The family of this 365-nucleotide RNA from Enterococcus dispar is "Bacterial RNase P class B". Its Rfam clan is "RNaseP clan". Its family is annotated with dimeric ribonuclease P complex, ribonuclease P activity and tRNA processing in the Gene Ontology. The match comes from Rfam's covariance-model search (342 bits). The organism belongs to Enterococcus dispar, within Bacteria.
[Rfam]
RNA sequence: AUUUUCGGGUAAUCGCGGUCUAGCAAUAGGCUGAGGAAAGUCCAUGCUCGCACAAGCUGCGAUGCUUGUAGUGUUCGUGCCUGGCGAAACCAUAAGCCAGGGUACUAUUUUAGUAACGGCAGGAAAAAUUCCUAAGGCGUAAGCUAUGGAUCAGUAUCCUUGAAAGUGCCACAGUGACGAAGCGUUAAAGGAAACUUUAACGGUGGAACGCGGUAAACCCCUCGAGCGAGCAACCCAAACAAUGGUAGGGGCACUUCUUUGACGGAAUCAAACGAAUACAAGAAGGUAUCUUUAUGAUGCAGAUAGAUGAUUACCCCGUGGUUUUUGACCCUGAAAAAACUACGGACAGAACAUGGCUUAUAGAA
Numbered sequence: 001a002u003u004u005u006c007g008g009g010u011a012a013u014c015g016c017g018g019u020c021u022a023g024c025a026a027u028a029g030g031c032u033g034a035g036g037a038a039a040g041u042c043c044a045u046g047c048u049c050g051c052a053c054a055a056g057c058u059g060c061g062a063u064g065c066u067u068g069u070a071g072u073g074u075u076c077g078u079g080c081c082u083g084g085c086g087a088a089a090c091c092a093u094a095a096g097c098c099a100g101g102g103u104a105c106u107a108u109u110u111u112a113g114u115a116a117c118g119g120c121a122g123g124a125a126a127a128a129u130u131c132c133u134a135a136g137g138c139g140u141a142a143g144c145u146a147u148g149g150a151u152c153a154g155u156a157u158c159c160u161u162g163a164a165a166g167u168g169c170c171a172c173a174g175u176g177a178c179g180a181a182g183c184g185u186u187a188a189a190g191g192a193a194a195c196u197u198u199a200a201c202g203g204u205g206g207a208a209c210g211c212g213g214u215a216a217a218c219c220c221c222u223c224g225a226g227c228g229a230g231c232a233a234c235c236c237a238a239a240c241a242a243u244g245g246u247a248g249g250g251g252c253a254c255u256u257c258u259u260u261g262a263c264g265g266a267a268u269c270a271a272a273c274g275a276a277u278a279c280a281a282g283a284a285g286g287u288a289u290c291u292u293u294a295u296g297a298u299g300c301a302g303a304u305a306g307a308u309g310a311u312u313a314c315c316c317c318g319u320g321g322u323u324u325u326u327g328a329c330c331c332u333g334a335a336a337a338a339a340c341u342a343c344g345g346a347c348a349g350a351a352c353a354u355g356g357c358u359u360a361u362a363g364a365a
Stems, first nucleotide, its partner, number of pairs: 004365003007361001008315007016033006038359003042356005047230005052069006075225003079221001080101006102117001103115005118220002121160004130150003136145003166218002168214003183202008234250003254285006286300005317344009